[Rfam]
RNA sequence: CGCUUUUUUCGCGGCCGAACUCGACCCACGGCCGCCCAGGUAGUUGCCUUCAUCGACGCUCACCGCGGCGCUUUCGGCGUCGAGCCGAUCUGCCAAGUGUUGCAGGUGGCGACG
Numbered sequence: 001c002g003c004u005u006u007u008u009u010c011g012c013g014g015c016c017g018a019a020c021u022c023g024a025c026c027c028a029c030g031g032c033c034g035c036c037c038a039g040g041u042a043g044u045u046g047c048c049u050u051c052a053u054c055g056a057c058g059c060u061c062a063c064c065g066c067g068g069c070g071c072u073u074u075c076g077g078c079g080u081c082g083a084g085c086c087g088a089u090c091u092g093c094c095a096a097g098u099g100u101u102g103c104a105g106g107u108g109g110c111g112a113c114g
Stems, first nucleotide, its partner, number of pairs: 013033005075114002078111002086109001089106005095100001

Rfam assigns this 114-nucleotide sequence from Microbispora rosea to the family "ALIL pseudoknot". A search with the family's covariance model found it, with a score of 54 bits. The source organism's lineage runs through Bacteria, Actinomycetota, Streptosporangiaceae, Microbispora and Microbispora rosea. It is annotated as a cis-regulatory element.